The record is a 35-nucleotide RNA sequence, which matches "DUF805b RNA" in Rfam.
It is one of the family's seed sequences.

[Rfam]
RNA sequence: AUAGCAUAAGCCGAAAAGCUUUAAUAGAGUAGGCA
Numbered sequence: 001a002u003a004g005c006a007u008a009a010g011c012c013g014a015a016a017a018g019c020u021u022u023a024a025u026a027g028a029g030u031a032g033g034c035a
Stems, first nucleotide, its partner, number of pairs: 003020003010034003